[Rfam]
RNA: c-di-AMP riboswitch aptamer (ydaO/yuaA leader)
RNA sequence: ACCGAAAUAACGCCUAAUCGAAGACAGUCCACAUAUCAAGGGCCAAUUCGAGUCGGGGACCCACCUUAGUCUGGGGUGAACCCGCCGCAAGAGAUCGCAAGAUCGGAGUGGUGGGAGGGAGCUUCCGUUUCCUAAUCCGUCAGCUAACCCGGCCGGCACAAGGGAAGAUUU
Numbered sequence: 001a002c003c004g005a006a007a008u009a010a011c012g013c014c015u016a017a018u019c020g021a022a023g024a025c026a027g028u029c030c031a032c033a034u035a036u037c038a039a040g041g042g043c044c045a046a047u048u049c050g051a052g053u054c055g056g057g058g059a060c061c062c063a064c065c066u067u068a069g070u071c072u073g074g075g076g077u078g079a080a081c082c083c084g085c086c087g088c089a090a091g092a093g094a095u096c097g098c099a100a101g102a103u104c105g106g107a108g109u110g111g112u113g114g115g116a117g118g119g120a121g122c123u124u125c126c127g128u129u130u131c132c133u134a135a136u137c138c139g140u141c142a143g144c145u146a147a148c149c150c151g152g153c154c155g156g157c158a159c160a161a162g163g164g165a166a167g168a169u170u171u
Base pairs, nucleotide, nucleotide: 012157013156014155018051019050020049021048022047052153053152054151055150056149057148062073063072074138075137076136082111083110084109085108114132115131116130117129
Dot-bracket structure: ...........(((...(((((........................)))))((((((....((........))(((.....((((......................))))..((((...........))))...))).........)))))).)))..............